[Rfam]
RNA sequence: AGUCAUAUGCUUGUCUCAAAGAUUAAGCCAUGCAUGUCUAAGUAUAAGCAAUCUUACGGUGAAACUGCGAAUGGCUCAUUAAAUCAGUUAUAGUUUAUUUGAUAGUACCUUACUACAUGGAUAACUGUGGUAAUUCUAGAGCUAAUACAUGCUUAAAGUCCCGACUUCUGGGAGGGAUGUAUUUAUUAGAUAAAAAGCCAACCCGGCUUAUGCCGGAACUGUGGUGAAUCAUGAUAACUUGUCGAAUCGCAUGGCCCUCGCGCCGGCGAUGUUUCAUUCAAAUUUCUGCCCUAUCAACUUUCGAUGGUAGGAUAGAGGCCUACCAUGGUGGUAACGGGUAACGGGGAAUUAGGGUUCGAUUCCGGAGAGGGAGCCUGAGAAACGGCUACCACAUCCAAGGAAGGCAGCAGGCGCGCAAAUUACCCAAUCCCGACACGGGGAGGUAGUGACAAUAAAUAACAACACAGGGCUCUUUCGGGUCUUGUUAUUGGAAUGAGUACGAUUUAAAUCUCCUAACGAGGAACAAUUGGAGGGCAAGUCUGGUGCCAGCAGCCGCGGUAAUUCCAGCUCCAAUAGCGUAUAUUAAAGUUGUUG
Numbered sequence: 001a002g003u004c005a006u007a008u009g010c011u012u013g014u015c016u017c018a019a020a021g022a023u024u025a026a027g028c029c030a031u032g033c034a035u036g037u038c039u040a041a042g043u044a045u046a047a048g049c050a051a052u053c054u055u056a057c058g059g060u061g062a063a064a065c066u067g068c069g070a071a072u073g074g075c076u077c078a079u080u081a082a083a084u085c086a087g088u089u090a091u092a093g094u095u096u097a098u099u100u101g102a103u104a105g106u107a108c109c110u111u112a113c114u115a116c117a118u119g120g121a122u123a124a125c126u127g128u129g130g131u132a133a134u135u136c137u138a139g140a141g142c143u144a145a146u147a148c149a150u151g152c153u154u155a156a157a158g159u160c161c162c163g164a165c166u167u168c169u170g171g172g173a174g175g176g177a178u179g180u181a182u183u184u185a186u187u188a189g190a191u192a193a194a195a196a197g198c199c200a201a202c203c204c205g206g207c208u209u210a211u212g213c214c215g216g217a218a219c220u221g222u223g224g225u226g227a228a229u230c231a232u233g234a235u236a237a238c239u240u241g242u243c244g245a246a247u248c249g250c251a252u253g254g255c256c257c258u259c260g261c262g263c264c265g266g267c268g269a270u271g272u273u274u275c276a277u278u279c280a281a282a283u284u285u286c287u288g289c290c291c292u293a294u295c296a297a298c299u300u301u302c303g304a305u306g307g308u309a310g311g312a313u314a315g316a317g318g319c320c321u322a323c324c325a326u327g328g329u330g331g332u333a334a335c336g337g338g339u340a341a342c343g344g345g346g347a348a349u350u351a352g353g354g355u356u357c358g359a360u361u362c363c364g365g366a367g368a369g370g371g372a373g374c375c376u377g378a379g380a381a382a383c384g385g386c387u388a389c390c391a392c393a394u395c396c397a398a399g400g401a402a403g404g405c406a407g408c409a410g411g412c413g414c415g416c417a418a419a420u421u422a423c424c425c426a427a428u429c430c431c432g433a434c435a436c437g438g439g440g441a442g443g444u445a446g447u448g449a450c451a452a453u454a455a456a457u458a459a460c461a462a463c464a465c466a467g468g469g470c471u472c473u474u475u476c477g478g479g480u481c482u483u484g485u486u487a488u489u490g491g492a493a494u495g496a497g498u499a500c501g502a503u504u505u506a507a508a509u510c511u512c513c514u515a516a517c518g519a520g521g522a523a524c525a526a527u528u529g530g531a532g533g534g535c536a537a538g539u540c541u542g543g544u545g546c547c548a549g550c551a552g553c554c555g556c557g558g559u560a561a562u563u564c565c566a567g568c569u570c571c572a573a574u575a576g577c578g579u580a581u582a583u584u585a586a587a588g589u590u591g592u593u594g
Stems, first nucleotide, its partner, number of pairs: 001584003005581007014454001016452001020447001021414001027412003031409003036068002041066003048060002075367003085288003090283002094281002100276003116151004125141002128138003158178005165171002183237006197225004205214003247269004252265004290338003297329003304326008342364004346357004369390002372387003392403001394401002420445001422444003428440005460490003464485009497517002499514001501513001527573006540567004549556002
This 594-nucleotide part of an RNA from Paraglomus brasilianum belongs to the Rfam family "Eukaryotic small subunit ribosomal RNA". Pairs were carried over by alignment from the consensus structure, which is taken from published work. Taxonomically the source falls in Paraglomus (Eukaryota, Fungi, Glomeromycota, Paraglomerales).